The record is a 183-nucleotide RNA from Georgfuchsia toluolica, which matches "6S / SsrS RNA" in Rfam. By type it is a non-coding RNA gene. A search with the family's covariance model found it, with a score of 48 bits. The family has 150 seed sequences and 5,006 matches in Rfam 15.1. The source organism's lineage runs through Bacteria, Pseudomonadota, Betaproteobacteria, Sterolibacteriaceae and Georgfuchsia.
[Rfam]
Nucleotides: 183
Base pairs, nucleotide, nucleotide: 002181003180004179005178006177007176008175009174010173012170013169014168015167017166018165032154033153034152035151037150038149039148040147041146059131060130061129063127064126068122075120076119077118078117079116080115085109086108090106091105092104093103094102
Number, partner (000 for none) and nucleotide at each position: 001000u002181u003180u004179c005178c006177c007176c008175u009174g010173c011000g012170g013169u014168g015167u016000u017166c018165g019000c020000c021000a022000a023000g024000g025000c026000c027000g028000u029000a030000a031000u032154u033153u034152c035151c036000u037150u038149g039148a040147g041146c042000c043000a044000a045000u046000a047000u048000c049000c050000g051000a052000g053000u054000a055000a056000c057000u058000u059131g060130g061129u062000c063127g064126c065000c066000g067000c068122c069000c070000a071000u072000g073000g074000a075120g076119g077118c078117c079116g080115c081000u082000g083000u084000u085109g086108u087000g088000a089000g090106c091105g092104c093103u094102c095000a096000u097000u098000u099000a100000u101000u102094g103093a104092g105091c106090g107000c108086a109085c110000c111000u112000g113000a114000u115080g116079c117078g118077g119076c120075c121000g122068g123000a124000a125000c126064g127063c128000g129061a130060c131059c132000u133000c134000u135000c136000u137000g138000a139000a140000c141000c142000c143000a144000g145000u146041g147040u148039u149038c150037a151035g152034g153033a154032g155000a156000g157000c158000g159000g160000c161000c162000c163000a164000a165018c166017g167015g168014c169013a170012c171000a172000g173010g174009c175008g176007g177006g178005g179004g180003a181002a182000u183000u